Background: A member of the RNA family "Plastid-ycf3 group II-D1 intron" from Triticum aestivum, 47 nucleotides long. The base pairs follow the family's consensus structure, which was predicted with LocARNA.
[Rfam]
RNA sequence: AUUAUGUAUGUCGUGUAUCCUCGAUUGAUGCAGCCUCAGAUGCUUCA
Numbered sequence: 001a002u003u004a005u006g007u008a009u010g011u012c013g014u015g016u017a018u019c020c021u022c023g024a025u026u027g028a029u030g031c032a033g034c035c036u037c038a039g040a041u042g043c044u045u046c047a
Stems, first nucleotide, its partner, number of pairs: 010025004032044003
From the family's description: Plastid rpl16 is a non-coding RNA (ncRNA) recognised in plastids. It was recognised in and intronic region of a ribosome rpl16 gene. Its family is annotated with Group II intron splicing in the Gene Ontology. It scores 62 bits against the family's covariance model.